[Rfam]
RNA sequence: GGCAGGCCUAUGAUGUUCAAUACUGCGUUAUCUACCUGAUUCCAAGGAUGACAACCAACCAUUCUGAGGCCUGCC
Number, nucleotide and partner (000 for none) at each position: 001g075002g074003c073004a072005g071006g070007c069008c000009u000010a000011u000012g000013a000014u000015g000016u000017u000018c000019a000020a000021u000022a000023c000024u000025g000026c000027g000028u000029u000030a000031u000032c000033u000034a000035c000036c000037u000038g000039a000040u000041u000042c000043c000044a000045a000046g000047g000048a000049u000050g000051a000052c000053a000054a000055c000056c000057a000058a000059c000060c000061a000062u000063u000064c000065u000066g000067a000068g000069g007070c006071c005072u004073g003074c002075c001
RNA: Small nucleolar RNA snoR27